[Rfam]
RNA: Group II catalytic intron D1-D4-3
Organism: Natranaerobius trueperi
RNA sequence: UCCAUCGCGAGGUGAGUCUGAAGGAAGCCUAAUGCAAACUCUCGGUCUGACGAAUAGAAACCACAUACAAGGCAUACGUGGGGUGGAUGAGUGUGCAUAUCAACACAAAGUCCAAUACCACCCGAACCCCACGGUGUAAAUGUGGCAGAUGUAUGA
Numbered sequence: 001u002c003c004a005u006c007g008c009g010a011g012g013u014g015a016g017u018c019u020g021a022a023g024g025a026a027g028c029c030u031a032a033u034g035c036a037a038a039c040u041c042u043c044g045g046u047c048u049g050a051c052g053a054a055u056a057g058a059a060a061c062c063a064c065a066u067a068c069a070a071g072g073c074a075u076a077c078g079u080g081g082g083g084u085g086g087a088u089g090a091g092u093g094u095g096c097a098u099a100u101c102a103a104c105a106c107a108a109a110g111u112c113c114a115a116u117a118c119c120a121c122c123c124g125a126a127c128c129c130c131a132c133g134g135u136g137u138a139a140a141u142g143u144g145g146c147a148g149a150u151g152u153a154u155g156a
Stems, first nucleotide, its partner, number of pairs: 001015002004013003042156003045150005061145006072137003077133007085113004091106004